[Rfam]
RNA sequence: UUCUCCCUGCCUGGUUCGCGAAGGUCGUAAAUUCCUUGAACCAAUGAUCGGAUGCAGGUUGCGGAAGUUUGUUGCACAAGCGUGAGCGUCACUCUGUCUGAUGAGCCCAAUGUGCUACUAACCGCGACCACCUUGAACCUUACGGUUCAGGAUGCCGGCCUAGCGGCUAAGGUGGGGACCUA
Numbered sequence: 001u002u003c004u005c006c007c008u009g010c011c012u013g014g015u016u017c018g019c020g021a022a023g024g025u026c027g028u029a030a031a032u033u034c035c036u037u038g039a040a041c042c043a044a045u046g047a048u049c050g051g052a053u054g055c056a057g058g059u060u061g062c063g064g065a066a067g068u069u070u071g072u073u074g075c076a077c078a079a080g081c082g083u084g085a086g087c088g089u090c091a092c093u094c095u096g097u098c099u100g101a102u103g104a105g106c107c108c109a110a111u112g113u114g115c116u117a118c119u120a121a122c123c124g125c126g127a128c129c130a131c132c133u134u135g136a137a138c139c140u141u142a143c144g145g146u147u148c149a150g151g152a153u154g155c156c157g158g159c160c161u162a163g164c165g166g167c168u169a170a171g172g173u174g175g176g177g178a179c180c181u182a
Stems, first nucleotide, its partner, number of pairs: 004178008012169004017165003033152003037149006057129003061125004071118002074115004080106002
RNA: 6S / SsrS RNA
Organism: Pandoraea thiooxydans